[Rfam]
RNA sequence: UGCCUUUACGUGUUGCCCGUUCAUCGCUCUUCCCCUGGAUGAAUGCGGUGUCAGAUAAGGCAUACAGUAAAUGUCUGGGCUGGCCUUCACGAGGUGUCUCUGGUGUCAUCUGGUACCAAGCUCCGCCCUAGCACAUUG
Numbered sequence: 001u002g003c004c005u006u007u008a009c010g011u012g013u014u015g016c017c018c019g020u021u022c023a024u025c026g027c028u029c030u031u032c033c034c035c036u037g038g039a040u041g042a043a044u045g046c047g048g049u050g051u052c053a054g055a056u057a058a059g060g061c062a063u064a065c066a067g068u069a070a071a072u073g074u075c076u077g078g079g080c081u082g083g084c085c086u087u088c089a090c091g092a093g094g095u096g097u098c099u100c101u102g103g104u105g106u107c108a109u110c111u112g113g114u115a116c117c118a119a120g121c122u123c124c125g126c127c128c129u130a131g132c133a134c135a136u137u138g
Stems, first nucleotide, its partner, number of pairs: 002061005011053002014050004018045008075131003078127003082123002093116001094114002099108001
RNA: Small nucleolar RNA SNORA13
Organism: Denticeps clupeoides